[Rfam]
RNA: Rhizobiales sRNA Atu_C8
Organism: Rhizobium album
RNA sequence: GAAGAUUUUUGGCAACCUUAUUGUGGUGGGAACGCGCAUGGGCAGGGUGGUGUAACCAUCCGGCGGUAGCCACCCAUGCGCGACAGACAGGCUCCUAAGGGGCCUUUUUUUAUGUCCAAAU
Numbered sequence: 001g002a003a004g005a006u007u008u009u010u011g012g013c014a015a016c017c018u019u020a021u022u023g024u025g026g027u028g029g030g031a032a033c034g035c036g037c038a039u040g041g042g043c044a045g046g047g048u049g050g051u052g053u054a055a056c057c058a059u060c061c062g063g064c065g066g067u068a069g070c071c072a073c074c075c076a077u078g079c080g081c082g083a084c085a086g087a088c089a090g091g092c093u094c095c096u097a098a099g100g101g102g103c104c105u106u107u108u109u110u111u112a113u114g115u116c117c118a119a120a121u
Base pairs, nucleotide, nucleotide: 007028009026029117030116031115033082034081035080036079037078038077039076040075041074042073045061046060047059048058049057050056063070064069087106089105090104091103092102093101094100095099